This 52-nucleotide sequence from Donghicola eburneus belongs to the Rfam family "serC leader". This family is a putative regulatory RNA structure that is found upstream of the serC-serA operon in some alpha-proteobacteria. The final stem of the structure overlaps the ribosome binding site of the serC reading frame. A reference for the family is Corbino et al. (2005), "Evidence for a second class of S-adenosylmethionine riboswitches and other regulatory RNA motifs in alpha-proteobacteria", Genome Biol. It is annotated as a cis-regulatory leader. A search with the family's covariance model found it, with a score of 72 bits. Its family is annotated with regulation of gene expression in the Gene Ontology.
[Rfam]
RNA sequence: CAGCGGGACACCUCUCCCCAACGAGAGGCGAUUAUCUGGAAGGGUACCAGAA
Numbered sequence: 001c002a003g004c005g006g007g008a009c010a011c012c013u014c015u016c017c018c019c020a021a022c023g024a025g026a027g028g029c030g031a032u033u034a035u036c037u038g039g040a041a042g043g044g045u046a047c048c049a050g051a052a
Stems, first nucleotide, its partner, number of pairs: 011028006033046005
Dot-bracket structure: ..........((((((......))))))....(((((....)))))......